[Rfam]
RNA sequence: UCUCCUAAAGACUAAGCCAUGCAUGUCUCCGAAUAGAAGAGCAAGUCUCUCUGAAUCUGCGAACGGCUCCGCAUACCAGUUGUAAACCAUAGCAAGCAAGCCGCGUUGUUGCCGCAAGGCGACGGCGCGGUUCACAGGGAUAACCCUGGUAAUUCUGAGGCUAAUACAAGAACGUACCACCCGCUUCGACCCGUAAGGGGAGGGCGGGGGUUGUGUGACCCAGGUCGCAAAUAUUAACUGGGAGUGGCCACACGAUCUGACCACCAUACCAAACGGUUAUCCGCUUCGAAAGCUUCGGUGAGUAACGGCGGAUUUCUGGGUGGCUCUCGCUGUGUGCUUCUGACCUAUCAACUAGAUGGCAGCGUAACGGACAUGCCAUGGUAACAACGGGUACAGAGGAUAAGGGUUCGAUCCUGGAGAGUGGGCCUGAGAGAUUGCUCACACUUCUAAGGAAGGCAGCAGGCGCGCAACGUUCCCAUUGGGCAAAGCUCGAGGGCGUUAGGGGACAUAUGAAUGCCUGCCUUAUGGUGGGCAAUUCAAAUGGGACUGUUUUAAACAUCCUAUCGAGUAACAA
Numbered sequence: 001u002c003u004c005c006u007a008a009a010g011a012c013u014a015a016g017c018c019a020u021g022c023a024u025g026u027c028u029c030c031g032a033a034u035a036g037a038a039g040a041g042c043a044a045g046u047c048u049c050u051c052u053g054a055a056u057c058u059g060c061g062a063a064c065g066g067c068u069c070c071g072c073a074u075a076c077c078a079g080u081u082g083u084a085a086a087c088c089a090u091a092g093c094a095a096g097c098a099a100g101c102c103g104c105g106u107u108g109u110u111g112c113c114g115c116a117a118g119g120c121g122a123c124g125g126c127g128c129g130g131u132u133c134a135c136a137g138g139g140a141u142a143a144c145c146c147u148g149g150u151a152a153u154u155c156u157g158a159g160g161c162u163a164a165u166a167c168a169a170g171a172a173c174g175u176a177c178c179a180c181c182c183g184c185u186u187c188g189a190c191c192c193g194u195a196a197g198g199g200g201a202g203g204g205c206g207g208g209g210g211u212u213g214u215g216u217g218a219c220c221c222a223g224g225u226c227g228c229a230a231a232u233a234u235u236a237a238c239u240g241g242g243a244g245u246g247g248c249c250a251c252a253c254g255a256u257c258u259g260a261c262c263a264c265c266a267u268a269c270c271a272a273a274c275g276g277u278u279a280u281c282c283g284c285u286u287c288g289a290a291a292g293c294u295u296c297g298g299u300g301a302g303u304a305a306c307g308g309c310g311g312a313u314u315u316c317u318g319g320g321u322g323g324c325u326c327u328c329g330c331u332g333u334g335u336g337c338u339u340c341u342g343a344c345c346u347a348u349c350a351a352c353u354a355g356a357u358g359g360c361a362g363c364g365u366a367a368c369g370g371a372c373a374u375g376c377c378a379u380g381g382u383a384a385c386a387a388c389g390g391g392u393a394c395a396g397a398g399g400a401u402a403a404g405g406g407u408u409c410g411a412u413c414c415u416g417g418a419g420a421g422u423g424g425g426c427c428u429g430a431g432a433g434a435u436u437g438c439u440c441a442c443a444c445u446u447c448u449a450a451g452g453a454a455g456g457c458a459g460c461a462g463g464c465g466c467g468c469a470a471c472g473u474u475c476c477c478a479u480u481g482g483g484c485a486a487a488g489c490u491c492g493a494g495g496g497c498g499u500u501a502g503g504g505g506a507c508a509u510a511u512g513a514a515u516g517c518c519u520g521c522c523u524u525a526u527g528g529u530g531g532g533c534a535a536u537u538c539a540a541a542u543g544g545g546a547c548u549g550u551u552u553u554a555a556a557c558a559u560c561c562u563a564u565c566g567a568g569u570a571a572c573a574a
Base pairs, nucleotide, nucleotide: 003506004505005504006503008500009499010466016464017463018462020461021460022459025060026059031057032056037052067419068418069417077342078341079340082337083336086335087334092330093329095327135170138167144160145159147157148156149155177213179211180210181209184206218303219302221300222299232291234289235288268277269276270275313323314322316320344391345390346389351382352381353380356379357378358377359376360375361374362372394416395415396414398409399408400407401406421442422441423440424439425438426437444455445454446453447452472497474496475495476494480492481491482490483489484488512538513537514536515534516533517532518531519530520529521528522527545565546564549561